Shown here is a 99-nucleotide sequence from Microcaecilia unicolor, a member of the family "mir-210 microRNA precursor family". The family's consensus secondary structure was predicted with WAR. For this family Rfam cites "The developmental miRNA profiles of zebrafish as determined by small RNA cloning" (Chen et al., Genes Dev, 2005).
RNA sequence: UCCAGAAGCAGAUGAGCCACUGACUAACGCACAUUGUGCUUCUGUAGACCCUCCACUGUGCGUGUGACAGCGGCUAACCUGCUUCUUGGCUUUACACCU
Numbered sequence: 001u002c003c004a005g006a007a008g009c010a011g012a013u014g015a016g017c018c019a020c021u022g023a024c025u026a027a028c029g030c031a032c033a034u035u036g037u038g039c040u041u042c043u044g045u046a047g048a049c050c051c052u053c054c055a056c057u058g059u060g061c062g063u064g065u066g067a068c069a070g071c072g073g074c075u076a077a078c079c080u081g082c083u084u085c086u087u088g089g090c091u092u093u094a095c096a097c098c099u
Base pairs, nucleotide, nucleotide: 005085006084007083008082009081010080011079015075016074017073018072020070021069022068024066025064026063028062029061030060031059032058033057035055036054